[Rfam]
RNA sequence: AUUUUCGCAAGUGCCUGGUUUCAGAGAGGUGUAAUUUUUGUUGUAUAGUACCCUUUUUUGGAACCAAGCCCUUUGAGAAA
Numbered sequence: 001a002u003u004u005u006c007g008c009a010a011g012u013g014c015c016u017g018g019u020u021u022c023a024g025a026g027a028g029g030u031g032u033a034a035u036u037u038u039u040g041u042u043g044u045a046u047a048g049u050a051c052c053c054u055u056u057u058u059u060g061g062a063a064c065c066a067a068g069c070c071c072u073u074u075g076a077g078a079a080a
Stems, first nucleotide, its partner, number of pairs: 002079006009073003013069002016066014031051002034049003038045001